Rfam assigns this 45-nucleotide sequence from Vibrio sp. qd031 to the family "Guanidine-II riboswitch aptamer (mini-ykkC)". Lineage of the source: Bacteria > Pseudomonadota > Vibrionales > Vibrionaceae > Vibrio.

RNA sequence: AAGUAAGGACGACCUUACCGCUCAAAUUUUGAUGGGGACGACCCC
Dot-bracket structure: ..((((((....))))))...............((((....))))

The base pairs follow the family's consensus structure, which is taken from published work.
Its family is annotated with regulation of gene expression in the Gene Ontology.